[Rfam]
RNA sequence: GGCCGGACAAGACGUUUAUCGCAUCCGGCAGUCGUGUGCAGAUGCCUGAUGCGACGCUAACGCGUCUUAUCAGGCC
Numbered sequence: 001g002g003c004c005g006g007a008c009a010a011g012a013c014g015u016u017u018a019u020c021g022c023a024u025c026c027g028g029c030a031g032u033c034g035u036g037u038g039c040a041g042a043u044g045c046c047u048g049a050u051g052c053g054a055c056g057c058u059a060a061c062g063c064g065u066c067u068u069a070u071c072a073g074g075c076c
Stems, first nucleotide, its partner, number of pairs: 002029006011020002044075008053066005
Dot-bracket structure: .((((((...((......))...))))))..............((((((((.(((((....))))).)))))))).

Nucleoid-associated noncoding RNA 4 (CssrE): a 76-nucleotide RNA sequence from Escherichia coli. Rfam's curators write: In E. coli small RNA transcribed from repeated extragenic palindromic element (REP325) called nucleoid-associated ncRNA 4 (nRNA4) collaborates HU protein in condensing the DNA. The secondary structure but not the sequence of the RNA is important in nucleoid condensation. Also identified in Shigella as CssrE. A search with the family's covariance model found it, with a score of 63 bits. The organism belongs to Escherichia coli, within Bacteria. Rfam 15.1 lists 870 matches to the family in 32 species. The literature on the family includes a 2015 paper in MBio by Qian et al., "A New Noncoding RNA Arranges Bacterial Chromosome Organization". Gene Ontology terms of the family: protein binding, bacterial nucleoid DNA packaging and bacterial nucleoid.